[Rfam]
RNA: small nucleolar RNA snoR117
Organism: Miscanthus lutarioriparius
RNA sequence: GGCCGAUGAUUGGAGAUCUAUUGUCCGUACCAUCUGAUUUUCUGAUGCAUCACAUUUGCCAAAUUGUCUCUGAGGCCC
Number, nucleotide and partner (000 for none) at each position: 001g077002g076003c075004c074005g000006a000007u000008g000009a000010u000011u000012g000013g000014a000015g000016a000017u000018c000019u000020a000021u000022u000023g000024u000025c000026c000027g000028u000029a000030c000031c000032a000033u000034c000035u000036g000037a000038u000039u000040u000041u000042c000043u000044g000045a000046u000047g000048c000049a000050u000051c000052a000053c000054a000055u000056u000057u000058g000059c000060c000061a000062a000063a000064u000065u000066g000067u000068c000069u000070c000071u000072g000073a000074g004075g003076c002077c001078c000